[Rfam]
RNA sequence: GGCCCAAUUCUGAAGUAAGGUAGACUAGUAAGGUCAGUUGAUCCUACUAUUCUACUGUACUUCGAAAUCGGGCCC
Numbered sequence: 001g002g003c004c005c006a007a008u009u010c011u012g013a014a015g016u017a018a019g020g021u022a023g024a025c026u027a028g029u030a031a032g033g034u035c036a037g038u039u040g041a042u043c044c045u046a047c048u049a050u051u052c053u054a055c056u057g058u059a060c061u062u063c064g065a066a067a068u069c070g071g072g073c074c075c
Base pairs, nucleotide, nucleotide: 001074002073003072004071005070007068008067009066011064012063013062014061015060016059017058019056020055021054022053023052026049027048028047029046030045032043033042034041035040
RNA: mir-5928 microRNA precursor family